Guanidine-II riboswitch aptamer (mini-ykkC): a 50-nucleotide sequence from Halovibrio salipaludis. The base pairs follow the family's consensus structure, which is taken from published work. Simpler in structure and has fewer highly conserved nucleotide positions than the ykkC-yxkD leader. Despite this each of its two stem-loop structures directly bind free guanidine. Therefore, mini-ykkC RNA motif represents a distinct class of guanidine-sensing RNAs. Its crystal structure was also determined. NCBI's taxonomy places the organism under Bacteria, Pseudomonadati, Gammaproteobacteria, Oceanospirillales, Halovibrio.

RNA sequence: ACCCGGGGACGACCUCGAAGGGGCCGGAACAACCAGGCGGGACGACCCGC
Numbered sequence: 001a002c003c004c005g006g007g008g009a010c011g012a013c014c015u016c017g018a019a020g021g022g023g024c025c026g027g028a029a030c031a032a033c034c035a036g037g038c039g040g041g042a043c044g045a046c047c048c049g050c
Base pairs, nucleotide, nucleotide: 004017005016006015007014008013037050038049039048040047041046